[Rfam]
RNA sequence: GCCGUCUCAUCGGGGUGCGGAAAAGGGGCUGGCCCUUUUCUGCUGAGAGCACACCCGUCGAACCUGAUCCGGUCAAUACCGGCGGAGGGAUUUGAGCCUAGCGACCCA
Numbered sequence: 001g002c003c004g005u006c007u008c009a010u011c012g013g014g015g016u017g018c019g020g021a022a023a024a025g026g027g028g029c030u031g032g033c034c035c036u037u038u039u040c041u042g043c044u045g046a047g048a049g050c051a052c053a054c055c056c057g058u059c060g061a062a063c064c065u066g067a068u069c070c071g072g073u074c075a076a077u078a079c080c081g082g083c084g085g086a087g088g089g090a091u092u093u094g095a096g097c098c099u100a101g102c103g104a105c106c107c108a
Stems, first nucleotide, its partner, number of pairs: 006096004011057004016051001017043011063088003069082004
RNA: TPP riboswitch aptamer (THI element)
Organism: Serratia symbiotica